Rfam assigns this 186-nucleotide sequence from Gelria sp. Kuro-4 to the family "Lysine riboswitch aptamer". Pairs were carried over by alignment from the consensus structure, which is taken from published work. The source organism's lineage runs through Bacteria, Bacillati, Thermoanaerobacterales, Thermoanaerobacteraceae and Gelria. A search with the family's covariance model found it, with a score of 75 bits. From the family's description: Riboswitches are metabolite binding domains within certain messenger RNAs that serve as precision sensors for their corresponding targets.

RNA sequence: GGGUGAGGUAGAGGCGCGGUUGGUCAAGAGUAGCCGUCCAGAGCAGGGCAGCGAGGAGGGACGGGGAAAGGGGCCGCCGCCGAAGCCGGGGGCCGGCGCCGGGCACCCGAGCUGGGCCGGCGGGAAAGACCCGCCGGACUGUCGCCGGAGGCGUCCCCCAGCCGCCGGCGAUGAGCUAUCUCACCG
Numbered sequence: 001g002g003g004u005g006a007g008g009u010a011g012a013g014g015c016g017c018g019g020u021u022g023g024u025c026a027a028g029a030g031u032a033g034c035c036g037u038c039c040a041g042a043g044c045a046g047g048g049c050a051g052c053g054a055g056g057a058g059g060g061a062c063g064g065g066g067a068a069a070g071g072g073g074c075c076g077c078c079g080c081c082g083a084a085g086c087c088g089g090g091g092g093c094c095g096g097c098g099c100c101g102g103g104c105a106c107c108c109g110a111g112c113u114g115g116g117c118c119g120g121c122g123g124g125a126a127a128g129a130c131c132c133g134c135c136g137g138a139c140u141g142u143c144g145c146c147g148g149a150g151g152c153g154u155c156c157c158c159c160a161g162c163c164g165c166c167g168g169c170g171a172u173g174a175g176c177u178a179u180c181u182c183a184c185c186g
Stems, first nucleotide, its partner, number of pairs: 006181006016080005022075004034064006084113003087109004092104003114140002117137008142171007